A member of the RNA family "Alpha operon ribosome binding site" from Chelonobacter oris, 115 nucleotides long. The match comes from Rfam's covariance-model search (103 bits). Lineage of the source: Bacteria > Pseudomonadati > Gammaproteobacteria > Pasteurellales > Chelonobacter. The family's RNA type in Rfam is cis-regulatory element. On this family, see Schlax et al., J Biol Chem 2001: "Translational repression of the Escherichia coli alpha operon mRNA: importance of an mRNA conformational switch and a ternary entrapment complex".
[Rfam]
RNA sequence: UCCUGAUAUGCUGUUUGAGUAUCCUGAAACGGGCUUUUCAAGAUCAGCAUAUCAAUUAACUUUAAGUAAAUAGGAGUGCAUAGUGGCCCGUAUUGCAGGCAUUAACAUUCCUGAU
Numbered sequence: 001u002c003c004u005g006a007u008a009u010g011c012u013g014u015u016u017g018a019g020u021a022u023c024c025u026g027a028a029a030c031g032g033g034c035u036u037u038u039c040a041a042g043a044u045c046a047g048c049a050u051a052u053c054a055a056u057u058a059a060c061u062u063u064a065a066g067u068a069a070a071u072a073g074g075a076g077u078g079c080a081u082a083g084u085g086g087c088c089c090g091u092a093u094u095g096c097a098g099g100c101a102u103u104a105a106c107a108u109u110c111c112u113g114a115u
Stems, first nucleotide, its partner, number of pairs: 004054010023099003030090004038114003